Glycine riboswitch aptamer: an 88-nucleotide RNA sequence from Flavonifractor sp. An52. Rfam links the family to the GO term glycine biosynthetic process.
RNA sequence: AGGAAGUCCACAGGAAAAAGCCGACGGCUUGCCGAAGGAGCAAAACUCUCAGGCGUUUCCCCCGGGAAAUGAGGACUGUGGAUGGAUG
Dot-bracket structure: .....((((((((.....((((...)))).(((((..(((.....))))).))).....................)))))))).....
Numbered sequence: 001a002g003g004a005a006g007u008c009c010a011c012a013g014g015a016a017a018a019a020g021c022c023g024a025c026g027g028c029u030u031g032c033c034g035a036a037g038g039a040g041c042a043a044a045a046c047u048c049u050c051a052g053g054c055g056u057u058u059c060c061c062c063c064g065g066g067a068a069a070u071g072a073g074g075a076c077u078g079u080g081g082a083u084g085g086a087u088g
Stems, first nucleotide, its partner, number of pairs: 006083008019029004031054003034050002038048003